[Rfam]
RNA: CRISPR RNA direct repeat element
RNA sequence: GCUUAAAUACAUAUCAUGUUAAGGUUCAAC
Numbered sequence: 001g002c003u004u005a006a007a008u009a010c011a012u013a014u015c016a017u018g019u020u021a022a023g024g025u026u027c028a029a030c
Stems, first nucleotide, its partner, number of pairs: 009019004